[Rfam]
RNA sequence: GAUCUUUGAGGUGGGAAAGGUUCCCCACGCGCUACACAUUAUGUAGUUACCAGAGAUGCAGGAUACGCCGACCUGCCAGGGAUC
Number, nucleotide and partner (000 for none) at each position: 001g084002a083003u082004c081005u080006u079007u078008g077009a000010g000011g028012u027013g026014g025015g024016a000017a000018a000019g069020g068021u067022u000023c000024c015025c014026c013027a012028c011029g000030c053031g047032c046033u045034a044035c043036a042037c000038a000039u000040u000041a000042u036043g035044u034045a033046g032047u031048u000049a000050c000051c000052a000053g030054a000055g000056a000057u000058g076059c075060a074061g073062g072063a000064u000065a000066c000067g021068c020069c019070g000071a000072c062073c061074u060075g059076c058077c008078a007079g006080g005081g004082a003083u002084c001